[Rfam]
RNA sequence: GGCGAUAAACGGUGCGUGGAAUAAGUGUUGUGGACCCGGGGGCAGUACCCGGCGCCUCCACCAAAUUCUGGCUUUGGGGCAAACUCCGCCCUCCGAGGCAGAUCAUGGGGGUGAAACAGGCUCGACACGCACGGUAAAGACCCAUCUUUCGCUCGGCAUUGUACCGCCGUUAUCGGGCUAUAUCACAAGUGCCAACGAUAAUUUCGAGGCAUUCGCUGUCGCUGCAUAA
Numbered sequence: 001g002g003c004g005a006u007a008a009a010c011g012g013u014g015c016g017u018g019g020a021a022u023a024a025g026u027g028u029u030g031u032g033g034a035c036c037c038g039g040g041g042g043c044a045g046u047a048c049c050c051g052g053c054g055c056c057u058c059c060a061c062c063a064a065a066u067u068c069u070g071g072c073u074u075u076g077g078g079g080c081a082a083a084c085u086c087c088g089c090c091c092u093c094c095g096a097g098g099c100a101g102a103u104c105a106u107g108g109g110g111g112u113g114a115a116a117c118a119g120g121c122u123c124g125a126c127a128c129g130c131a132c133g134g135u136a137a138a139g140a141c142c143c144a145u146c147u148u149u150c151g152c153u154c155g156g157c158a159u160u161g162u163a164c165c166g167c168c169g170u171u172a173u174c175g176g177g178c179u180a181u182a183u184c185a186c187a188a189g190u191g192c193c194a195a196c197g198a199u200a201a202u203u204u205c206g207a208g209g210c211a212u213u214c215g216c217u218g219u220c221g222c223u224g225c226a227u228a229a
Stems, first nucleotide, its partner, number of pairs: 001153005014143001016141002026131003030128003036052005053113007154169004

A member of the RNA family "permuted transfer-messenger RNA" from Acidiphilium rubrum, 229 nucleotides long. On this family, see Williams, Nucleic Acids Res 2002: "The tmRNA Website: invasion by an intron". Rfam links the family to the GO term RNA catabolic process. The match comes from Rfam's covariance-model search (139 bits). Lineage of the source: Bacteria > Pseudomonadati > Acetobacterales > Acidocellaceae > Acidiphilium. Rfam describes the family as follows. Bacterial tmRNA, also known as 10Sa RNA or SsrA, is named for its dual tRNA and mRNA-like properties. Its role is to liberate the mRNA from a stalled ribosome. To accomplish this part of the tmRNA is used as a reading frame that ends in a translation stop signal. The broken mRNA is replaced in the ribosome by the tmRNA and translation of the tmRNA leads to addition of a proteolysis tag to the incomplete protein enabling recognition by a protease. Recently a number of permuted tmRNA genes have been found encoded in two parts. tmRNAs have been identified in eubacteria and some chloroplasts but are absent from archaeal and eukaryote nuclear genomes.